[Rfam]
RNA sequence: UUGGAGGGCAAGUCUGGUGAAAAUCUAUAUAACACAAACAAUUUCUUUUGUUUUGCUGCUAUCAAGCCCUUCGUAAACAAAAAAAACAACGCCAGAUGUCUUCAUUUAGGCAAAGUCGUGGAGUUCAGUACCACGAUACACUUGUAAAUUGCGGGAAAGUCUCGUUUUAGGCAAUACAUACCGCGGCCCGCCGAGAGGUGAGAUCCAGGAAUGAGUCAGGGUGCAGCAGUGAGCGUAACGGCUCAUGGAUGGUAAAAACUGUAUUGAUAGAGAUAAUCUGCAUCGAAGCGCGACUUUUUAUAAAAGAAAAGAGGCGAACGUUCAGAGACUAUAAUCGAGUGGGCGCAAGCUUAAGGGAUAGUCCAAUCCACGGGGAGACCCGGUCCAAAGGAGUACGGCGAUUUACUCUCGCCUAGGACUUUGGAGGUGCUUCAUCGCAUCGGUAGUAAUGGCCAGCAGCCGCGGUAAUUCCAGCUCCAAU
Dot-bracket structure: ((((((.......((((.....................................................................................................................................................................................................................................................................................................................................................................................................................................................................)))))))))).

A member of the RNA family "Eukaryotic small subunit ribosomal RNA" from Bathycoccus prasinos, 481 nucleotides of a longer RNA. The organism belongs to Bathycoccus, within Eukaryota. It scores 1701 bits against the family's covariance model. Pairs were carried over by alignment from the consensus structure, which is taken from published work.